[Rfam]
RNA sequence: UGAUGCCAGAAAUCAAGUGUGGGUGGAGCCUGUUGGAGUUUCUGAGGCGACCCAUUCUUGGUUUCAGGGAUCA
Dot-bracket structure: .(((.((.((((((.((...((((...((((.............)))).))))...)).)))))).)).))).
RNA: mir-551 microRNA precursor family
Organism: Polypterus senegalus